[Rfam]
RNA sequence: CCUGUUAUAUGGCUAACAGUAGUCUAGGGAUAGUGCAUAACUGGCAACGGUUUUGUGCGGAGCUUCCUGACAAUGUACUCCCCGAAAGGGCUUAUAUUGCCGUGAGGUAAUGUAAGGAAAAUGUGAGCAACACACAUUGAGAGAG
Numbered sequence: 001c002c003u004g005u006u007a008u009a010u011g012g013c014u015a016a017c018a019g020u021a022g023u024c025u026a027g028g029g030a031u032a033g034u035g036c037a038u039a040a041c042u043g044g045c046a047a048c049g050g051u052u053u054u055g056u057g058c059g060g061a062g063c064u065u066c067c068u069g070a071c072a073a074u075g076u077a078c079u080c081c082c083c084g085a086a087a088g089g090g091c092u093u094a095u096a097u098u099g100c101c102g103u104g105a106g107g108u109a110a111u112g113u114a115a116g117g118a119a120a121a122u123g124u125g126a127g128c129a130a131c132a133c134a135c136a137u138u139g140a141g142a143g144a145g
Stems, first nucleotide, its partner, number of pairs: 002019006027068004033058005039052005081090003091116004100107002120138006
Group II catalytic intron D1-D4-7: a 145-nucleotide RNA from Caviibacterium pharyngocola. Its family is annotated with Group II intron splicing in the Gene Ontology. Rfam's curators write: Group II introns are found in rRNA, tRNA and mRNA of organelles in fungi, plants and protists, and also in mRNA in bacteria. Taxonomically the source falls in Caviibacterium (Bacteria, Pseudomonadati, Pseudomonadota, Gammaproteobacteria). It scores 107 bits against the family's covariance model.